Source information
A member of the RNA family "FMN riboswitch aptamer (RFN element)" from Commensalibacter papalotli, 157 nucleotides long.
[Rfam]
RNA sequence: CGACGUUCUUGGGGCGAGGUGAAACUCCUCACCGGCGGUGAUGAAAUAGCAAUAUUUCUAAGCCCGUGAGCGCUUAUGUUAGAAAUAACAUAAGGUCAAGCAGAUUUCGGUGUAAUUCCGAAGCCGACGGUCAUAGUCCGGAUGAGAAAGAACGAUG
Numbered sequence: 001c002g003a004c005g006u007u008c009u010u011g012g013g014g015c016g017a018g019g020u021g022a023a024a025c026u027c028c029u030c031a032c033c034g035g036c037g038g039u040g041a042u043g044a045a046a047u048a049g050c051a052a053u054a055u056u057u058c059u060a061a062g063c064c065c066g067u068g069a070g071c072g073c074u075u076a077u078g079u080u081a082g083a084a085a086u087a088a089c090a091u092a093a094g095g096u097c098a099a100g101c102a103g104a105u106u107u108c109g110g111u112g113u114a115a116u117u118c119c120g121a122a123g124c125c126g127a128c129g130g131u132c133a134u135a136g137u138c139c140g141g142a143u144g145a146g147a148a149a150g151a152a153c154g155a156u157g
Stems, first nucleotide, its partner, number of pairs: 004154007017029003031137002033126002035067004062124002070101002106122005128140003
The RFN element is a highly conserved domain that is found frequently in the 5'-untranslated regions of prokaryotic mRNAs that encode for flavin mononucleotide (FMN) biosynthesis and transport proteins.
The source organism's lineage runs through Bacteria, Pseudomonadati, Pseudomonadota, Acetobacterales and Commensalibacter.
The family's consensus secondary structure is taken from published work.